[Rfam]
RNA: permuted transfer-messenger RNA
RNA sequence: GGCAAUAAACUGCAAAAAGAAUAAGUAUACUGGACCUGGGGGCGGUACCCAGCAUCUCCACCAUUAAAAAACAUGGGGAUGUAGAAGAAUUGACAGGUAUGUAAAGUUUUGUUUUUACCUGGGAAGAUAUCCCCAUUAAAAGAUUCAAAAAAAUAAAUGCAAAUGAUAAUUAUGGAUCAAGACUUGGUAGCGUUGCUGUUUAA
Numbered sequence: 001g002g003c004a005a006u007a008a009a010c011u012g013c014a015a016a017a018a019g020a021a022u023a024a025g026u027a028u029a030c031u032g033g034a035c036c037u038g039g040g041g042g043c044g045g046u047a048c049c050c051a052g053c054a055u056c057u058c059c060a061c062c063a064u065u066a067a068a069a070a071a072c073a074u075g076g077g078g079a080u081g082u083a084g085a086a087g088a089a090u091u092g093a094c095a096g097g098u099a100u101g102u103a104a105a106g107u108u109u110u111g112u113u114u115u116u117a118c119c120u121g122g123g124a125a126g127a128u129a130u131c132c133c134c135a136u137u138a139a140a141a142g143a144u145u146c147a148a149a150a151a152a153a154u155a156a157a158u159g160c161a162a163a164u165g166a167u168a169a170u171u172a173u174g175g176a177u178c179a180a181g182a183c184u185u186g187g188u189a190g191c192g193u194u195g196c197u198g199u200u201u202a203a
Base pairs, nucleotide, nucleotide: 001119002118004116005115014110015109016108017107026099027098028097030096031095032094036052037051038050039049040048053081054080055079056078057077058076059075120135121134122133123132